ZMP/ZTP riboswitch aptamer (pfl RNA motif): an 87-nucleotide RNA from Frankia nepalensis.
[Rfam]
RNA sequence: UCACCGCGUCGCGACUGGCGUGCUUGGGUGGAAUCAACCACCGGGAAGCGACCGAGCGGUACGGCACCGCGCGCCUGGGUGCCGCCG
Numbered sequence: 001u002c003a004c005c006g007c008g009u010c011g012c013g014a015c016u017g018g019c020g021u022g023c024u025u026g027g028g029u030g031g032a033a034u035c036a037a038c039c040a041c042c043g044g045g046a047a048g049c050g051a052c053c054g055a056g057c058g059g060u061a062c063g064g065c066a067c068c069g070c071g072c073g074c075c076u077g078g079g080u081g082c083c084g085c086c087g
Stems, first nucleotide, its partner, number of pairs: 005054001008052005015045002017075005028041004064082005